[Rfam]
RNA sequence: UGCUCGCUCUCCCUCAGGGCUUCCAACGCAGUAAGCAGGUACGUGCAUGUCAGCAUAUUCUCGCUGCAGGCUCGAGGUCUUUGGUGAGAGUAGUGAUCAA
Numbered sequence: 001u002g003c004u005c006g007c008u009c010u011c012c013c014u015c016a017g018g019g020c021u022u023c024c025a026a027c028g029c030a031g032u033a034a035g036c037a038g039g040u041a042c043g044u045g046c047a048u049g050u051c052a053g054c055a056u057a058u059u060c061u062c063g064c065u066g067c068a069g070g071c072u073c074g075a076g077g078u079c080u081u082u083g084g085u086g087a088g089a090g091u092a093g094u095g096a097u098c099a100a
Stems, first nucleotide, its partner, number of pairs: 004093001006091006013084001015083001016081008
Dot-bracket structure: ...(.((((((.(.(((((((((..................................................)))))))).)).)))))).).......
RNA: MIR473 microRNA precursor family